The record is a 65-nucleotide sequence from Prochlorococcus marinus, which matches "Cyano-1 RNA" in Rfam.
RNA sequence: UCUGCUGUGAGGAGUUGAGAUCCUCAGUAGUGGAAACAAGGAAACACUUACGCCUGAUCUCACGA
Numbered sequence: 001u002c003u004g005c006u007g008u009g010a011g012g013a014g015u016u017g018a019g020a021u022c023c024u025c026a027g028u029a030g031u032g033g034a035a036a037c038a039a040g041g042a043a044a045c046a047c048u049u050a051c052g053c054c055u056g057a058u059c060u061c062a063c064g065a
Base pairs, nucleotide, nucleotide: 015062017061018060019059020058021057025056026055027051028050029049030047031046032045
It is annotated as a small RNA. It is one of the family's seed sequences.